[Rfam]
Nucleotides: 073
Stems, first nucleotide, its partner, number of pairs: 001072007010025004027043005049065005
Number, partner (000 for none) and nucleotide at each position: 001072g002071c003070g004069c005068u006067c007066c008000u009000a010025g011024c012023u013022c014000a015000g016000c017000u018000g019000g020000a021000a022013g023012a024011g025010c026000a027043a028042c029041u030040g031039g032000u033000u034000u035000a036000c037000a038000c039031c040030c041029a042028g043027u044000a045000g046000g047000u048000c049065g050064g051063c052062g053061g054000u055000u056000c057000g058000a059000g060000c061053c062052c063051g064050c065049c066007g067006g068005a069004g070003c071002g072001c073000a
Shown here is a 73-nucleotide RNA from Corynebacterium otitidis, a member of the family "tRNA".
Rfam classes the family as a transfer RNA.
Rfam's curators write: Transfer RNA (tRNA) molecules are approximately 80 nucleotides in length.
It scores 66 bits against the family's covariance model.
The organism belongs to Corynebacterium otitidis, within Bacteria.
Clan: tRNA clan.